A member of the RNA family "Ribosomal protein L19 leader" from Kurthia sp. 11kri321, 46 nucleotides long.
This family is a putative r-protein leader autoregulatory structure found in B. subtilis and other low-GC Gram-positive bacteria.
The family's consensus secondary structure was predicted with CMfinder.
The match comes from Rfam's covariance-model search (38 bits).
A reference for the family is Zengel and Lindahl (1994), "Diverse mechanisms for regulating ribosomal protein synthesis in Escherichia coli", Prog Nucleic Acid Res Mol Biol.
Nucleotides: 046
Stems, first nucleotide, its partner, number of pairs: 003044007013036005
Number, partner (000 for none) and nucleotide at each position: 001000a002000c003044g004043a005042u006041g007040u008039u009038c010000c011000g012000c013036u014035g015034u016033a017032g018000c019000a020000a021000c022000c023000a024000a025000g026000a027000g028000c029000g030000a031000u032017c033016u034015a035014u036013a037000a038009g039008a040007g041006c042005a043004u044003c045000u046000g